[Rfam]
RNA: SAM riboswitch aptamer (S box leader)
Organism: Rhodococcus jostii
RNA sequence: CAACCAUCCAGAGCGACCGAGAGACCUGGCUCGUUGACGUCGCAGCAACCCUUCCGAAUUUUUCGGGUGCGGGUGCUACCGCCGGGAUCGAUGGAAG
Numbered sequence: 001c002a003a004c005c006a007u008c009c010a011g012a013g014c015g016a017c018c019g020a021g022a023g024a025c026c027u028g029g030c031u032c033g034u035u036g037a038c039g040u041c042g043c044a045g046c047a048a049c050c051c052u053u054c055c056g057a058a059u060u061u062u063u064c065g066g067g068u069g070c071g072g073g074u075g076c077u078a079c080c081g082c083c084g085g086g087a088u089c090g091a092u093g094g095a096a097g
Stems, first nucleotide, its partner, number of pairs: 001097001004094005013043005021032003026085004044077004049073002051069001053067004081089001